The family of this 78-nucleotide sequence from Theropithecus gelada is "Y RNA". The family's RNA type in Rfam is non-coding RNA gene. From the family's description: Y RNAs are components of the Ro ribonucleoprotein particle (Ro RNP), in association with Ro60 and La proteins. The match comes from Rfam's covariance-model search (44 bits). Taxonomically the source falls in Theropithecus (Eukaryota, Eumetazoa, Amniota, Haplorrhini). The base pairs follow the family's consensus structure, which is taken from published work.
[Rfam]
RNA sequence: UGUUGGUCCGAGUGUUGUGCGUUAUCGUUAGGCUGAUUUACCAUUGUCUCCCCCCACGACCACGCUGGACUAGCUUCG
Numbered sequence: 001u002g003u004u005g006g007u008c009c010g011a012g013u014g015u016u017g018u019g020c021g022u023u024a025u026c027g028u029u030a031g032g033c034u035g036a037u038u039u040a041c042c043a044u045u046g047u048c049u050c051c052c053c054c055c056a057c058g059a060c061c062a063c064g065c066u067g068g069a070c071u072a073g074c075u076u077c078g
Base pairs, nucleotide, nucleotide: 002074003073004072005071006070007069008068011066014063015062016058017057018056019055021053027042030039031038